The family of this 129-nucleotide RNA from Longispora fulva is "FMN riboswitch aptamer (RFN element)". NCBI's taxonomy places the organism under Bacteria, Actinomycetes, Micromonosporales, Micromonosporaceae, Longispora. Gene Ontology term of the family: FMN binding. The match comes from Rfam's covariance-model search (91 bits).
RNA sequence: ACGCGCUGGCGGGGUCGGUGCAAUUCCGAACCGGCGGUGAGAGCCCGCGACCCGGUCACAGCCAGUGACCGGUUGACCCGAUGAAAUCUCGGGGCCGACGGUGAAAGUCCGGAUGGGAGUUCAGCGCGC
Numbered sequence: 001a002c003g004c005g006c007u008g009g010c011g012g013g014g015u016c017g018g019u020g021c022a023a024u025u026c027c028g029a030a031c032c033g034g035c036g037g038u039g040a041g042a043g044c045c046c047g048c049g050a051c052c053c054g055g056u057c058a059c060a061g062c063c064a065g066u067g068a069c070c071g072g073u074u075g076a077c078c079c080g081a082u083g084a085a086a087u088c089u090c091g092g093g094g095c096c097g098a099c100g101g102u103g104a105a106a107g108u109c110c111g112g113a114u115g116g117g118a119g120u121u122c123a124g125c126g127c128g129c
Stems, first nucleotide, its partner, number of pairs: 003127006009120002016028003030108002032097002034048004043095002052072002077093005099111003
Dot-bracket structure: ..((((((((.....(((.......))).[[((((((.....[[))))...((.................))....(((((.......)))))]])).(((.....]]))).......)).))))))..